[Rfam]
RNA sequence: CGUUGAACAGCAUAUUUGAUUCGUAUAAUUCCGGGAAUUGGCCUGGAAGUCUCUACGAGGUCACCGUAAUGACCUGGCUACGAUUUAAGGACAUGCCCGC
Numbered sequence: 001c002g003u004u005g006a007a008c009a010g011c012a013u014a015u016u017u018g019a020u021u022c023g024u025a026u027a028a029u030u031c032c033g034g035g036a037a038u039u040g041g042c043c044u045g046g047a048a049g050u051c052u053c054u055a056c057g058a059g060g061u062c063a064c065c066g067u068a069a070u071g072a073c074c075u076g077g078c079u080a081c082g083a084u085u086u087a088a089g090g091a092c093a094u095g096c097c098c099g100c
Base pairs, nucleotide, nucleotide: 018086019085021083022082023081024080025079029048030047031046032045033044034043035042058075059074060073061072062071063070
RNA: Purine riboswitch aptamer